[Rfam]
Small nucleolar RNA SNORA41: a 133-nucleotide RNA sequence from Dipodomys ordii. The family's consensus secondary structure was predicted with PFOLD. The family has 31 seed sequences and 676 matches in Rfam 15.1. For this family Rfam cites "RNomics: an experimental approach that identifies 201 candidates for novel, small, non-messenger RNAs in mouse" (Huttenhofer et al., EMBO J, 2001). A search with the family's covariance model found it, with a score of 119 bits. The family's RNA type in Rfam is H/ACA-box small nucleolar RNA.
RNA sequence: CUCCACAGUUACUGGUCUGCAGCUGUUCUUAAUGAUAGUUUGUGGCAUUCCUCUGUGGGAAAGAAACUGUUACACAGUUAAAUACCACUUUCUUAACCAAACAGAAAGAGGGCACACAGUGUGACAGACACAA
Numbered sequence: 001c002u003c004c005a006c007a008g009u010u011a012c013u014g015g016u017c018u019g020c021a022g023c024u025g026u027u028c029u030u031a032a033u034g035a036u037a038g039u040u041u042g043u044g045g046c047a048u049u050c051c052u053c054u055g056u057g058g059g060a061a062a063g064a065a066a067c068u069g070u071u072a073c074a075c076a077g078u079u080a081a082a083u084a085c086c087a088c089u090u091u092c093u094u095a096a097c098c099a100a101a102c103a104g105a106a107a108g109a110g111g112g113c114a115c116a117c118a119g120u121g122u123g124a125c126a127g128a129c130a131c132a133a
Stems, first nucleotide, its partner, number of pairs: 003058004017045006025039001072122004085112002088108006